Shown here is an 85-nucleotide sequence from Chinchilla lanigera, a member of the family "Small nucleolar RNA SNORD103/SNORD85". NCBI's taxonomy places the organism under Eukaryota, Eumetazoa, Tetrapoda, Chinchillidae, Chinchilla.
RNA sequence: UCUGGCAGUGAUGACCCACUUGCCCUCACUGAGAACACAGUUCGAUAAUGAGAAUCUCCGUUAUGGACUCAGGUUCUGAGCCAGG
Numbered sequence: 001u002c003u004g005g006c007a008g009u010g011a012u013g014a015c016c017c018a019c020u021u022g023c024c025c026u027c028a029c030u031g032a033g034a035a036c037a038c039a040g041u042u043c044g045a046u047a048a049u050g051a052g053a054a055u056c057u058c059c060g061u062u063a064u065g066g067a068c069u070c071a072g073g074u075u076c077u078g079a080g081c082c083a084g085g
Base pairs, nucleotide, nucleotide: 001085002084003083004082005081006080
Rfam links the family to the GO terms RNA processing and nucleolus.
The base pairs follow the family's consensus structure.
For this family Rfam cites "Identification of 13 novel human modification guide RNAs" (Vitali et al., Nucleic Acids Res, 2003).
The family's RNA type in Rfam is C/D-box small nucleolar RNA.
A search with the family's covariance model found it, with a score of 95 bits.